[Rfam]
RNA sequence: GAAAUCCUACCUGAUAAGAUUAAGCCAAAUCAUCAGUAGCGAGUCUUGGAGUCAAUAAAGUGAUUUAUUGAUUUAAGUGUAGACAGUUAGGUAAUAGGCCUGAAAGUGAUUGAGCCUCGAAAUCGUACAAUUGGGAAAGGCUGACAGUUUCAGAUAUCUGGAAAGCAACAUUUUAUGAGACAUUAAUGGCUAGUUUCUUAAAACCUCCCCGGGGUCUAAGAGCC
Numbered sequence: 001g002a003a004a005u006c007c008u009a010c011c012u013g014a015u016a017a018g019a020u021u022a023a024g025c026c027a028a029a030u031c032a033u034c035a036g037u038a039g040c041g042a043g044u045c046u047u048g049g050a051g052u053c054a055a056u057a058a059a060g061u062g063a064u065u066u067a068u069u070g071a072u073u074u075a076a077g078u079g080u081a082g083a084c085a086g087u088u089a090g091g092u093a094a095u096a097g098g099c100c101u102g103a104a105a106g107u108g109a110u111u112g113a114g115c116c117u118c119g120a121a122a123u124c125g126u127a128c129a130a131u132u133g134g135g136a137a138a139g140g141c142u143g144a145c146a147g148u149u150u151c152a153g154a155u156a157u158c159u160g161g162a163a164a165g166c167a168a169c170a171u172u173u174u175a176u177g178a179g180a181c182a183u184u185a186a187u188g189g190c191u192a193g194u195u196u197c198u199u200a201a202a203a204c205c206u207c208c209c210c211g212g213g214g215u216c217u218a219a220g221a222g223c224c
Base pairs, nucleotide, nucleotide: 011036012035013034014033018031019030020029021028023191024190026189039087040086043084044083045082046081047079048078049074050073051072052071053070054069055068056067057066058065059064111218112216114215115214116213117212118211119210133209134208135207136206139204140166141165142164145160146159147158171203172202173201174200175199177197178196179195180194181193
The family of this 224-nucleotide sequence from Iocasia frigidifontis is "Group II catalytic intron D1-D4-6".
Group II introns are found in rRNA, tRNA and mRNA of organelles in fungi, plants and protists, and also in mRNA in bacteria.
The source organism's lineage runs through Bacteria, Bacillati, Clostridia, Halanaerobiales and Iocasia.
Rfam 15.1 lists 1,617 matches to the family in 661 species.
The match comes from Rfam's covariance-model search (146 bits).